[Rfam]
The family of this 75-nucleotide RNA sequence from Anguilla anguilla is "mir-23 microRNA precursor family". The family's consensus secondary structure was predicted with PFOLD. For this family Rfam cites "The developmental miRNA profiles of zebrafish as determined by small RNA cloning" (Chen et al., Genes Dev, 2005). Taxonomically the source falls in Anguilla (Eukaryota, Metazoa, Bilateria, Gnathostomata). Gene Ontology terms of the family: RISC complex and gene silencing by miRNA.
RNA sequence: AGCCAGGGGGAUUCCUGGCAGGGUGAUUUGGGAAUCGGCAGACUGAAUCACAUUGCCAGGGAUUUCCAAUGGCCG
Numbered sequence: 001a002g003c004c005a006g007g008g009g010g011a012u013u014c015c016u017g018g019c020a021g022g023g024u025g026a027u028u029u030g031g032g033a034a035u036c037g038g039c040a041g042a043c044u045g046a047a048u049c050a051c052a053u054u055g056c057c058a059g060g061g062a063u064u065u066c067c068a069a070u071g072g073c074c075g
Stems, first nucleotide, its partner, number of pairs: 002074001004072001006070001009067002011063011023051007